[Rfam]
RNA: Group II catalytic intron D1-D4-3
Nucleotides: 174
Base pairs, nucleotide, nucleotide: 002015003014004013005012006011028174030172031171032170036165041159042158043157044156045155047152048151049150050149062148063147064146065145066144067143073140074139075138077136078135079134081133082132083131084130086114087113088112089111092107093106094105095104
Number, partner (000 for none) and nucleotide at each position: 001000g002015u003014u004013g005012u006011c007000g008000c009000g010000a011006g012005g013004c014003a015002a016000g017000g018000u019000c020000u021000g022000g023000a024000g025000g026000a027000a028174g029000c030172c031171g032170g033000a034000g035000g036165c037000a038000a039000a040000a041159c042158u043157c044156g045155g046000a047152c048151c049150c050149g051000a052000c053000g054000a055000a056000c057000a058000g059000a060000a061000a062148c063147c064146g065145g066144a067143u068000a069000c070000a071000a072000g073140g074139c075138c076000g077136a078135u079134g080000c081133u082132c083131g084130c085000a086114g087113g088112g089111u090000a091000a092107u093106c094105u095104g096000g097000c098000c099000a100000u101000g102000g103000a104095c105094a106093g107092a108000g109000a110000a111089g112088c113087c114086c115000g116000a117000u118000a119000g120000c121000c122000a123000c124000u125000c126000g127000g128000a129000u130084g131083c132082g133081a134079c135078a136077u137000a138075g139074g140073u141000a142000a143067a144066u145065c146064c147063g148062g149050c150049g151048g152047g153000a154000g155045c156044c157043g158042a159041g160000g161000g162000a163000a164000a165036g166000g167000a168000u169000u170032c171031c172030g173000u174028c